[Rfam]
RNA sequence: CAAUUAAGCAAACCAGCAAACCAAAGCCUUUUUUUUGUUCUCCAACAAAUCAACCCACCCUUCCAUCCAUCAACAUGUCUCCCUGCACCUGCAACUGCUGCUCCGGCGAGUGCAAGUCCUGCUCUUGCAAGUCCUGCACUGUAUGACUGCUUCCAUC
Numbered sequence: 001c002a003a004u005u006a007a008g009c010a011a012a013c014c015a016g017c018a019a020a021c022c023a024a025a026g027c028c029u030u031u032u033u034u035u036u037g038u039u040c041u042c043c044a045a046c047a048a049a050u051c052a053a054c055c056c057a058c059c060c061u062u063c064c065a066u067c068c069a070u071c072a073a074c075a076u077g078u079c080u081c082c083c084u085g086c087a088c089c090u091g092c093a094a095c096u097g098c099u100g101c102u103c104c105g106g107c108g109a110g111u112g113c114a115a116g117u118c119c120u121g122c123u124c125u126u127g128c129a130a131g132u133c134c135u136g137c138a139c140u141g142u143a144u145g146a147c148u149g150c151u152u153c154c155a156u157c
Stems, first nucleotide, its partner, number of pairs: 084108003091101003112137003121128002
The record is a 157-nucleotide RNA sequence from Penicilliopsis zonata, which matches "A. fumigatus sRNA Afu_254" in Rfam. A reference for the family is Jochl et al. (2008), "Small ncRNA transcriptome analysis from Aspergillus fumigatus suggests a novel mechanism for regulation of protein synthesis", Nucleic Acids Res. A search with the family's covariance model found it, with a score of 77 bits. The family has 6 seed sequences and 185 matches in Rfam 15.1.